[Rfam]
RNA sequence: GGUUAGAAAUAUGACAAAGCUAGGGAACAGGUAGAGCAUGGAUGAGGCUAUCAACAGAGAUCAGAGAAUGAAAACAAAUAUGUUGUAGCUUCAGUUAUGCACUGCCUCUUCCCUGGCUAAGUUUCUUUCCUUUUU
Numbered sequence: 001g002g003u004u005a006g007a008a009a010u011a012u013g014a015c016a017a018a019g020c021u022a023g024g025g026a027a028c029a030g031g032u033a034g035a036g037c038a039u040g041g042a043u044g045a046g047g048c049u050a051u052c053a054a055c056a057g058a059g060a061u062c063a064g065a066g067a068a069u070g071a072a073a074a075c076a077a078a079u080a081u082g083u084u085g086u087a088g089c090u091u092c093a094g095u096u097a098u099g100c101a102c103u104g105c106c107u108c109u110u111c112c113c114u115g116g117c118u119a120a121g122u123u124u125c126u127u128u129c130c131u132u133u134u135u
Stems, first nucleotide, its partner, number of pairs: 018118002021115007029107006036100006045091007